[Rfam]
RNA sequence: AUAUAGGCAAAAAUGCAUUUUUUAGAUUCAUUGAAUAAUGGAUGUAUCUGGACUAUAAUAUAGUCCAGAUACAUCCAUUAUUCAAUGAAUCUAAAAAAUGCACUUUUACUUAUAU
Numbered sequence: 001a002u003a004u005a006g007g008c009a010a011a012a013a014u015g016c017a018u019u020u021u022u023u024a025g026a027u028u029c030a031u032u033g034a035a036u037a038a039u040g041g042a043u044g045u046a047u048c049u050g051g052a053c054u055a056u057a058a059u060a061u062a063g064u065c066c067a068g069a070u071a072c073a074u075c076c077a078u079u080a081u082u083c084a085a086u087g088a089a090u091c092u093a094a095a096a097a098a099u100g101c102a103c104u105u106u107u108a109c110u111u112a113u114a115u
Stems, first nucleotide, its partner, number of pairs: 002114006009107004015101011027089018049067004

Rfam assigns this 115-nucleotide RNA sequence from Trifolium pratense to the family "MIR2593 microRNA precursor family". Pairs were carried over by alignment from the consensus structure, which was predicted with RNAalifold. The organism belongs to Trifolium, within Eukaryota.